RNA: Bacterial large signal recognition particle RNA
Organism: Anaerobranca californiensis
RNA sequence: CCGUGCUAGAUGGGGAGGUAGCGGUGCCCUGUACCUGCAAUCCGCUAUAGCAGGAUUGAAUGCCUAUACUGAGGCUUAUACUUUGUAGGGCUGGCCUAAAUAAGUGGUGACGACGAUUGGGUCCUACGCAAUAGCACUCUAUGAACCCCGUCAGGUCCGGAAGGAAGCAGCGGUAAGUAGCUGUUGCUAUGUGCCGUAGGGAAGCCUGAUUCGAGCUAACUGUUUAGGUAUCGCCUAUGAAUAUAAGUCGAAUUUAGGGCACGG
Numbered sequence: 001c002c003g004u005g006c007u008a009g010a011u012g013g014g015g016a017g018g019u020a021g022c023g024g025u026g027c028c029c030u031g032u033a034c035c036u037g038c039a040a041u042c043c044g045c046u047a048u049a050g051c052a053g054g055a056u057u058g059a060a061u062g063c064c065u066a067u068a069c070u071g072a073g074g075c076u077u078a079u080a081c082u083u084u085g086u087a088g089g090g091c092u093g094g095c096c097u098a099a100a101u102a103a104g105u106g107g108u109g110a111c112g113a114c115g116a117u118u119g120g121g122u123c124c125u126a127c128g129c130a131a132u133a134g135c136a137c138u139c140u141a142u143g144a145a146c147c148c149c150g151u152c153a154g155g156u157c158c159g160g161a162a163g164g165a166a167g168c169a170g171c172g173g174u175a176a177g178u179a180g181c182u183g184u185u186g187c188u189a190u191g192u193g194c195c196g197u198a199g200g201g202a203a204g205c206c207u208g209a210u211u212c213g214a215g216c217u218a219a220c221u222g223u224u225u226a227g228g229u230a231u232c233g234c235c236u237a238u239g240a241a242u243a244u245a246a247g248u249c250g251a252a253u254u255u256a257g258g259g260c261a262c263g264g
Stems, first nucleotide, its partner, number of pairs: 001264007009057003012030004017025001019023001034054005064257003068253001070251001073249005079243002082241008094229001096227006104220002106217003115211008123200006129191002132189005139180004148173004156165003